[Rfam]
RNA: Yersinia sRNA 155(RyfD)
RNA sequence: CAAGACGAUCCAAGAACGCAUACGCUGUACUCUUAAUAUAGUGACAAAGUAACCUUGAAAACGUGAGGGAUGACCUCAUUUAAUCUCCAGUAGCAAUUUUGUUCUAUAUUGGAGGUGUUAUGCGUCUGGAUCGUCUUAC
Numbered sequence: 001c002a003a004g005a006c007g008a009u010c011c012a013a014g015a016a017c018g019c020a021u022a023c024g025c026u027g028u029a030c031u032c033u034u035a036a037u038a039u040a041g042u043g044a045c046a047a048a049g050u051a052a053c054c055u056u057g058a059a060a061a062c063g064u065g066a067g068g069g070a071u072g073a074c075c076u077c078a079u080u081u082a083a084u085c086u087c088c089a090g091u092a093g094c095a096a097u098u099u100u101g102u103u104c105u106a107u108a109u110u111g112g113a114g115g116u117g118u119u120a121u122g123c124g125u126c127u128g129g130a131u132c133g134u135c136u137u138a139c
Base pairs, nucleotide, nucleotide: 002137003136004135005134006133007132008131009130010129011128012127016125017124018123019122020121022118023117025043028040029039031038053068054067055066056065057064069080070079071078072077083116084115085114086113087112088111089110090109091108092107